[Rfam]
RNA sequence: GUGGCCGGCAUGGCCCCAGCCUCCUCGCUGGCGCCGGCUGGGCAACGAUCCGAGGGGACUGUCCCUCUCGAGAAUCGGCAAAUGGGGCCCC
Numbered sequence: 001g002u003g004g005c006c007g008g009c010a011u012g013g014c015c016c017c018a019g020c021c022u023c024c025u026c027g028c029u030g031g032c033g034c035c036g037g038c039u040g041g042g043c044a045a046c047g048a049u050c051c052g053a054g055g056g057g058a059c060u061g062u063c064c065c066u067c068u069c070g071a072g073a074a075u076c077g078g079c080a081a082a083u084g085g086g087g088c089c090c091c
Stems, first nucleotide, its partner, number of pairs: 003039007012089007019032003023041002046077004050072001052069005058062001